[Rfam]
This 132-nucleotide RNA sequence from Pelusios castaneus belongs to the Rfam family "Small nucleolar RNA SNORA69". The match comes from Rfam's covariance-model search (90 bits).
RNA sequence: AAAGCAGGCUGCAAUUACAGUGCUUCAUUCUGUGGGAGUACUGCCAUUUUCCUGCUGAGAGUAACUCUGUUAAUAUUGCUGCUGGUUUCACCGACGCAUUGGUGAAACCGCUAAUCAUUAACAUGGUACAUG
Numbered sequence: 001a002a003a004g005c006a007g008g009c010u011g012c013a014a015u016u017a018c019a020g021u022g023c024u025u026c027a028u029u030c031u032g033u034g035g036g037a038g039u040a041c042u043g044c045c046a047u048u049u050u051c052c053u054g055c056u057g058a059g060a061g062u063a064a065c066u067c068u069g070u071u072a073a074u075a076u077u078g079c080u081g082c083u084g085g086u087u088u089c090a091c092c093g094a095c096g097c098a099u100u101g102g103u104g105a106a107a108c109c110g111c112u113a114a115u116c117a118u119u120a121a122c123a124u125g126g127u128a129c130a131u132g
Stems, first nucleotide, its partner, number of pairs: 003056006018043009065126002068123007083110012
It is annotated as an H/ACA-box small nucleolar RNA.